[Rfam]
RNA: Small nucleolar RNA Z188
RNA sequence: GUGUGCCAGUGAUGAUUAAAGAUAUAGCAAUGGUGAAUUCGAUGAAUGUGCUCGCGUGCCACUGGGUGUGCAACUCUGGUGAUAUACAUUCUUAUGCAGUGCAUCUGAGGCAAGC
Numbered sequence: 001g002u003g004u005g006c007c008a009g010u011g012a013u014g015a016u017u018a019a020a021g022a023u024a025u026a027g028c029a030a031u032g033g034u035g036a037a038u039u040c041g042a043u044g045a046a047u048g049u050g051c052u053c054g055c056g057u058g059c060c061a062c063u064g065g066g067u068g069u070g071c072a073a074c075u076c077u078g079g080u081g082a083u084a085u086a087c088a089u090u091c092u093u094a095u096g097c098a099g100u101g102c103a104u105c106u107g108a109g110g111c112a113a114g115c
Stems, first nucleotide, its partner, number of pairs: 002114001004112004